[Rfam]
RNA sequence: AAAGUUAGUUGAACAGUCGCUAUUUAAUAUUUCUAUAUUAAAUAGAGGAAAGUCCGGGCUCCGUAAGGCAAGACGCCAGAUAACGUCUGGGAAGAGAAAUCUUACGACUAGUGCCACAGAAAAUAAACUAUCUAUAUAAUUUAAUAGAUACAGGUGAAAAGGUUCGGUAAAAGCGUACCGCAGAAUUGGUAACAAUUUUGGCUAGGUAAACAUCCGUCUGGAGCAAGGCUAAAUAAGAAGAGUAUAGCCUGUACUUAUCUUCGGGUAAGCUGCUUGAAUUAAUAAGUGAUUAUUAAUCUGGAUAAAUGACUGUGUAAACAGAACCCGGCUUAUAAAUUAACUUAUCUU
Numbered sequence: 001a002a003a004g005u006u007a008g009u010u011g012a013a014c015a016g017u018c019g020c021u022a023u024u025u026a027a028u029a030u031u032u033c034u035a036u037a038u039u040a041a042a043u044a045g046a047g048g049a050a051a052g053u054c055c056g057g058g059c060u061c062c063g064u065a066a067g068g069c070a071a072g073a074c075g076c077c078a079g080a081u082a083a084c085g086u087c088u089g090g091g092a093a094g095a096g097a098a099a100u101c102u103u104a105c106g107a108c109u110a111g112u113g114c115c116a117c118a119g120a121a122a123a124u125a126a127a128c129u130a131u132c133u134a135u136a137u138a139a140u141u142u143a144a145u146a147g148a149u150a151c152a153g154g155u156g157a158a159a160a161g162g163u164u165c166g167g168u169a170a171a172a173g174c175g176u177a178c179c180g181c182a183g184a185a186u187u188g189g190u191a192a193c194a195a196u197u198u199u200g201g202c203u204a205g206g207u208a209a210a211c212a213u214c215c216g217u218c219u220g221g222a223g224c225a226a227g228g229c230u231a232a233a234u235a236a237g238a239a240g241a242g243u244a245u246a247g248c249c250u251g252u253a254c255u256u257a258u259c260u261u262c263g264g265g266u267a268a269g270c271u272g273c274u275u276g277a278a279u280u281a282a283u284a285a286g287u288g289a290u291u292a293u294u295a296a297u298c299u300g301g302a303u304a305a306a307u308g309a310c311u312g313u314g315u316a317a318a319c320a321g322a323a324c325c326c327g328g329c330u331u332a333u334a335a336a337u338u339a340a341c342u343u344a345u346c347u348u
Stems, first nucleotide, its partner, number of pairs: 002343009011333001013313006020045009050331003054328005059223004066250004071219005076090005091105001092103004106214002111211002113207003128153002130149006136141001161179003165175002180202001181200008227271004237262004241255005278297008

The record is a 348-nucleotide sequence from Buchnera aphidicola, which matches "Bacterial RNase P class A" in Rfam.
On this family, see Frank and Pace, Annu Rev Biochem 1998: "Ribonuclease P: unity and diversity in a tRNA processing ribozyme".
Clan: RNaseP clan.
It is one of the family's seed sequences.
The source organism's lineage runs through Bacteria, Gammaproteobacteria, Buchnera, Buchnera aphidicola and Buchnera aphidicola (Cinara cedri).